This 305-nucleotide RNA from Gossypium lobatum belongs to the Rfam family "Plant signal recognition particle RNA". The family's RNA type in Rfam is non-coding RNA gene. A search with the family's covariance model found it, with a score of 219 bits.
[Rfam]
RNA sequence: GCCGAGCUAAGUAACUCUAGCUUGUGACCCGAGUGGGGGCAGUGAAGUGGCAGGAUGAUGGUUCGGUCCUCUGGGCAGGAUCCACGCAUGCGUAUUCCAGGCUCGCCCGUUCAAAGUUAUGAGUCUGAACCUUGAGUCUUGGGCGAAAGCUCGGGCCUCGUGGUUCUUAGAGGCGAGGGCACUGCGUGAGGCUGGUUUAACAGAGCAGCGAAAACCUCCUACUCAUAACAGUUGAAGGAUAACGGGUCGGUGCUUCUUGGACCCAGAUUGCCUCGUAGGCCGAGUUCAAUCCGACUGUCACCUUU
Numbered sequence: 001g002c003c004g005a006g007c008u009a010a011g012u013a014a015c016u017c018u019a020g021c022u023u024g025u026g027a028c029c030c031g032a033g034u035g036g037g038g039g040c041a042g043u044g045a046a047g048u049g050g051c052a053g054g055a056u057g058a059u060g061g062u063u064c065g066g067u068c069c070u071c072u073g074g075g076c077a078g079g080a081u082c083c084a085c086g087c088a089u090g091c092g093u094a095u096u097c098c099a100g101g102c103u104c105g106c107c108c109g110u111u112c113a114a115a116g117u118u119a120u121g122a123g124u125c126u127g128a129a130c131c132u133u134g135a136g137u138c139u140u141g142g143g144c145g146a147a148a149g150c151u152c153g154g155g156c157c158u159c160g161u162g163g164u165u166c167u168u169a170g171a172g173g174c175g176a177g178g179g180c181a182c183u184g185c186g187u188g189a190g191g192c193u194g195g196u197u198u199a200a201c202a203g204a205g206c207a208g209c210g211a212a213a214a215c216c217u218c219c220u221a222c223u224c225a226u227a228a229c230a231g232u233u234g235a236a237g238g239a240u241a242a243c244g245g246g247u248c249g250g251u252g253c254u255u256c257u258u259g260g261a262c263c264c265a266g267a268u269u270g271c272c273u274c275g276u277a278g279g280c281c282g283a284g285u286u287c288a289a290u291c292c293g294a295c296u297g298u299c300a301c302c303u304u305u
Base pairs, nucleotide, nucleotide: 001040002039003038004023005022006021007020008019009018011016028037029036030035044304045303047301048300049299050298051297052296053295057291059288060287061285062284063283064282065281066280068279069278070277072275073274074272075271076270077269078264079263081261082260083259084258086256088255090253098250100248101247102246103245104244105243107238108237110236111235112234113233114232116229117228118227119226120225121224122223123222124221127166128165129164130163131162133160134159135158136157138155139154140153141152142151143150144149167172173220175218176217177216178215183212185210186209187208192203193202194201
The organism belongs to Gossypium, within Eukaryota. The family's consensus secondary structure is taken from published work. Its family is annotated with signal recognition particle, endoplasmic reticulum targeting and SRP-dependent cotranslational protein targeting to membrane, signal sequence recognition in the Gene Ontology.